RNA sequence: CUGUGUCUUGCUUCAACAGUGCUUAGACGGAACAG
Numbered sequence: 001c002u003g004u005g006u007c008u009u010g011c012u013u014c015a016a017c018a019g020u021g022c023u024u025a026g027a028c029g030g031a032a033c034a035g
Stems, first nucleotide, its partner, number of pairs: 001035004006031003010028001012027002015024002017021001
RNA: Iron response element I